[Rfam]
RNA sequence: ACUGCCCCAGCUUGUGUUGCAGGCGUGGCUGCAGUGCCACGUUUGUGUCAUUCGGUGAGAGGAUAAGGUGAGGUCUUCCCCUGGUGCUCUGACCCACGUGGGCUCCCAGGAUUGAUCAACAACCUGACAUU
Numbered sequence: 001a002c003u004g005c006c007c008c009a010g011c012u013u014g015u016g017u018u019g020c021a022g023g024c025g026u027g028g029c030u031g032c033a034g035u036g037c038c039a040c041g042u043u044u045g046u047g048u049c050a051u052u053c054g055g056u057g058a059g060a061g062g063a064u065a066a067g068g069u070g071a072g073g074u075c076u077u078c079c080c081c082u083g084g085u086g087c088u089c090u091g092a093c094c095c096a097c098g099u100g101g102g103c104u105c106c107c108a109g110g111a112u113u114g115a116u117c118a119a120c121a122a123c124c125u126g127a128c129a130u131u
Stems, first nucleotide, its partner, number of pairs: 002061002006057001007055002010052001014048002019046004024041006068128001071125002077115002081109004086103004

Rfam assigns this 131-nucleotide sequence from Formicarius rufipectus to the family "Small nucleolar RNA SNORA17". Rfam's curators write: snoRNA ACA 17 belongs to the H/ACA family of snoRNAs and is predicted to guide pseudouridylation of the 28S rRNA at positions U4659 and U4598. It shares the same host gene together with ACA43. NB This family has a high threshold value to exclude a large number of closely related sequences that do not appear to have conserved H and ACA boxes, and may be pseudogenes. It is annotated as an H/ACA-box small nucleolar RNA. Pairs were carried over by alignment from the consensus structure, which was predicted with RNAalifold.